Rfam assigns this 83-nucleotide RNA sequence from Peromyscus maniculatus to the family "mir-194 microRNA precursor family". It scores 77 bits against the family's covariance model. Rfam links the family to the GO terms RISC complex and miRNA-mediated post-transcriptional gene silencing. NCBI's taxonomy places the organism under Eukaryota, Opisthokonta, Vertebrata, Cricetidae, Peromyscus maniculatus.
RNA sequence: UGGCCCCCACCCCCUGUAACAGCAACUCCAUGUGGAAGUGCCCACUGGUUUCCAGUGGGGCUGCUGUUAUCUGGGGUGCAGGC
Dot-bracket structure: .........(((...((((((((..((((((.(((................)))))))))..))))))))...))).......